[Rfam]
A member of the RNA family "mir-7 microRNA precursor family" from Syrrhaptes paradoxus, 93 nucleotides long. A search with the family's covariance model found it, with a score of 65 bits. Pairs were carried over by alignment from the consensus structure, which was predicted with PFOLD. Rfam's curators write: This family represents the microRNA (miRNA) precursor mir-7. For this family Rfam cites "microRNAs: tiny regulators with great potential" (Ambros, Cell, 2001).

RNA sequence: GGUCCCUGGGCAGGCUGGAAGACUCGUGAUUUUGUUGUUUCCAGUAUCAAGGGGAGCAAACAACAAAUCCCAGUCUCCGCCCUGCCCCGGCCA
Numbered sequence: 001g002g003u004c005c006c007u008g009g010g011c012a013g014g015c016u017g018g019a020a021g022a023c024u025c026g027u028g029a030u031u032u033u034g035u036u037g038u039u040u041c042c043a044g045u046a047u048c049a050a051g052g053g054g055a056g057c058a059a060a061c062a063a064c065a066a067a068u069c070c071c072a073g074u075c076u077c078c079g080c081c082c083u084g085c086c087c088c089g090g091c092c093a
Base pairs, nucleotide, nucleotide: 002092004090005089008087009086011084012083013082014081016079017078018077020076021075022074023073024072026071028069029068030067031066032065034064035063036062037061038060039059